A member of the RNA family "TPP riboswitch aptamer (THI element)" from Micrococcus endophyticus, 105 nucleotides long. Rfam describes the family as follows. Vitamin B(1) in its active form thiamin pyrophosphate (TPP) is an essential coenzyme that is synthesised by coupling of pyrimidine and thiazole moieties in bacteria. Lineage of the source: Bacteria > Actinomycetota > Actinomycetes > Micrococcales > Micrococcus. Gene Ontology term of the family: thiamine pyrophosphate binding. The match comes from Rfam's covariance-model search (62 bits).

RNA sequence: UCACAUCGACAGGGGAGCGCCCCACGGCGCUGAGAGUGCGGUCCGCCGCAGACCCUCGAACCUGCUCCGGCUCGCACCGGCGAAGGAAGUCGAGUCCUCCCGGUC
Numbered sequence: 001u002c003a004c005a006u007c008g009a010c011a012g013g014g015g016a017g018c019g020c021c022c023c024a025c026g027g028c029g030c031u032g033a034g035a036g037u038g039c040g041g042u043c044c045g046c047c048g049c050a051g052a053c054c055c056u057c058g059a060a061c062c063u064g065c066u067c068c069g070g071c072u073c074g075c076a077c078c079g080g081c082g083a084a085g086g087a088a089g090u091c092g093a094g095u096c097c098u099c100c101c102g103g104u105c
Base pairs, nucleotide, nucleotide: 006093007092008091009090010089011056012055013054014053017030018029019028020027021026037050038049039048040047041046061086062085063084067080068079069078070077